[Rfam]
A member of the RNA family "Small nucleolar RNA SNORA51" from Cricetulus griseus, 133 nucleotides long. Rfam links the family to the GO terms RNA processing and nucleolus. From the family's description: ACA51 is a member of the H/ACA class of snoRNA that guide the sites of modification of uridines to pseudouridines.
RNA sequence: GGCCUCCUUGUGCUUACUAUAGGCUGUGUUCUAACACUGACUGUAUAGAAAGAGGAGGCAGAGUAAACCUACCCCAUAUACACCUCAGCCUAGGCCAUUGUGCUUGGUCUGUAUUGUGAAUGGGGAUACAUGG
Numbered sequence: 001g002g003c004c005u006c007c008u009u010g011u012g013c014u015u016a017c018u019a020u021a022g023g024c025u026g027u028g029u030u031c032u033a034a035c036a037c038u039g040a041c042u043g044u045a046u047a048g049a050a051a052g053a054g055g056a057g058g059c060a061g062a063g064u065a066a067a068c069c070u071a072c073c074c075c076a077u078a079u080a081c082a083c084c085u086c087a088g089c090c091u092a093g094g095c096c097a098u099u100g101u102g103c104u105u106g107g108u109c110u111g112u113a114u115u116g117u118g119a120a121u122g123g124g125g126a127u128a129c130a131u132g133g
Base pairs, nucleotide, nucleotide: 002059003058004057005056006055007054008053020043021042022041026037027036028035029034072125073124074123075122076121077120086111087110088109090107091106092105093104094103095102